The record is an 88-nucleotide sequence from Lonsdalea quercina, which matches "TrxA 5' UTR thermometer" in Rfam. About the family: Involved in protection against oxidative stress. The literature on the family includes a 2016 paper in Proc Natl Acad Sci U S A by Righetti et al., "Temperature-responsive in vitro RNA structurome of Yersinia pseudotuberculosis". The organism belongs to Lonsdalea, within Bacteria. Pairs were carried over by alignment from the consensus structure. A search with the family's covariance model found it, with a score of 82 bits.
RNA sequence: ACCCCAAGGUUGGUUAAUGCUACACCAACUGGUUGGACAUAAUCCUGCGGAGUAAAACAUGAGCGAUAAAAUUAUUCACCUGACCGAC
Numbered sequence: 001a002c003c004c005c006a007a008g009g010u011u012g013g014u015u016a017a018u019g020c021u022a023c024a025c026c027a028a029c030u031g032g033u034u035g036g037a038c039a040u041a042a043u044c045c046u047g048c049g050g051a052g053u054a055a056a057a058c059a060u061g062a063g064c065g066a067u068a069a070a071a072u073u074a075u076u077c078a079c080c081u082g083a084c085c086g087a088c
Base pairs, nucleotide, nucleotide: 009067010066011065012064014062015061016060021054022053023052025050026049030047031046032045072087073086076083077082
Dot-bracket structure: ........((((.(((....(((.((...(((............))).)).))).....))).))))....((..((....))..)).